A member of the RNA family "Small nucleolar RNA SNORA67" from Gulo gulo, 143 nucleotides long. U67 belongs to the H/ACA class of snoRNAs which are thought to guide the sites of modification of uridines to pseudouridines. It is annotated as an H/ACA-box small nucleolar RNA. The base pairs follow the family's consensus structure, which was predicted with RNAalifold.
[Rfam]
RNA sequence: GUCCAAGCUGAUUCCCUCUCCAGGUGGCCUGAUCAUACCCCUCUUCAGGAAAGUAGCAACUUGGAAGAAAAUCUGGCAUGCCUGAGGUUCCUGGGGGAGAGGGCAUGUCUGUUUCCUUUGCCUUCCUUUGGCUGCCUACACGC
Numbered sequence: 001g002u003c004c005a006a007g008c009u010g011a012u013u014c015c016c017u018c019u020c021c022a023g024g025u026g027g028c029c030u031g032a033u034c035a036u037a038c039c040c041c042u043c044u045u046c047a048g049g050a051a052a053g054u055a056g057c058a059a060c061u062u063g064g065a066a067g068a069a070a071a072u073c074u075g076g077c078a079u080g081c082c083u084g085a086g087g088u089u090c091c092u093g094g095g096g097g098a099g100a101g102g103g104c105a106u107g108u109c110u111g112u113u114u115c116c117u118u119u120g121c122c123u124u125c126c127u128u129u130g131g132c133u134g135c136c137u138a139c140a141c142g143c
Base pairs, nucleotide, nucleotide: 002065003064004063005062006061007060009058010057019050020049021048022044023043024042026040027039076133079131084126086124093116095114096113097112
Dot-bracket structure: .((((((.((........((((((.((...........)).)))...)))......)).))))))..........(..(....(.(......(.(((..............))).).......).)....).)..........